[Rfam]
RNA sequence: CCCGUUCAAUCUGGAGAGCGGCGCGCGCACGCGCGCCCACCGAAGGGGCUAACGGCCACGCUGUGUGUACAUCACUGGCGCGCCGGAAAAUCUCAGGUUCAGCGGACAGAGGGUGUGAG
Numbered sequence: 001c002c003c004g005u006u007c008a009a010u011c012u013g014g015a016g017a018g019c020g021g022c023g024c025g026c027g028c029a030c031g032c033g034c035g036c037c038c039a040c041c042g043a044a045g046g047g048g049c050u051a052a053c054g055g056c057c058a059c060g061c062u063g064u065g066u067g068u069a070c071a072u073c074a075c076u077g078g079c080g081c082g083c084c085g086g087a088a089a090a091u092c093u094c095a096g097g098u099u100c101a102g103c104g105g106a107c108a109g110a111g112g113g114u115g116u117g118a119g
Stems, first nucleotide, its partner, number of pairs: 007113001010110004020037004039098003042094002046092002053085004